[Rfam]
RNA sequence: UCACUCUUGUUUCACUUCAGAUCGUAUAAAUCUUUCGCCUUUUACUAAAGAUUUCCGUGGAGUGGAACAAUUAAGAGUUUUACUCAAUUUUUUGAUGCCCUGCGUCUGCGGGGCU
Numbered sequence: 001u002c003a004c005u006c007u008u009g010u011u012u013c014a015c016u017u018c019a020g021a022u023c024g025u026a027u028a029a030a031u032c033u034u035u036c037g038c039c040u041u042u043u044a045c046u047a048a049a050g051a052u053u054u055c056c057g058u059g060g061a062g063u064g065g066a067a068c069a070a071u072u073a074a075g076a077g078u079u080u081u082a083c084u085c086a087a088u089u090u091u092u093u094g095a096u097g098c099c100c101u102g103c104g105u106c107u108g109c110g111g112g113g114c115u
Stems, first nucleotide, its partner, number of pairs: 003078004009068011028054008095115001097114006

The record is a 115-nucleotide RNA from Tetraodon nigroviridis, which matches "U5 spliceosomal RNA" in Rfam. Rfam's curators write: U5 RNA is a component of both types of known spliceosome. It is one of the family's seed sequences. Rfam classes the family as a spliceosomal small nuclear RNA. The base pairs follow the family's consensus structure, which is taken from published work. Rfam links the family to the GO terms U5 snRNP and spliceosomal tri-snRNP complex assembly. The organism belongs to Tetraodon, within Eukaryota.